[Rfam]
RNA: Glycine riboswitch aptamer
Organism: Solibacillus silvestris
Nucleotides: 109
Base pairs, nucleotide, nucleotide: 001109002108003107004106005105012038013037014036015035040097041096042095044092047091048090049089053084054083055082056081
Number, partner (000 for none) and nucleotide at each position: 001109c002108u003107c004106u005105g006000g007000a008000g009000a010000g011000u012038g013037c014036u015035g016000u017000a018000a019000u020000a021000g022000c023000u024000a025000u026000u027000g028000u029000u030000a031000c032000a033000a034000a035015c036014a037013g038012c039000c040097a041096c042095c043000a044092a045000a046000g047091g048090g049089g050000a051000a052000a053084g054083c055082c056081u057000a058000a059000a060000u061000u062000g063000u064000g065000a066000u067000a068000g069000a070000g071000g072000a073000u074000c075000a076000a077000a078000u079000u080000c081056a082055g083054g084053u085000g086000u087000a088000a089049c090048u091047u092044u093000c094000a095042g096041g097040u098000g099000c100000c101000a102000g103000g104000a105005c106004a107003g108002a109001g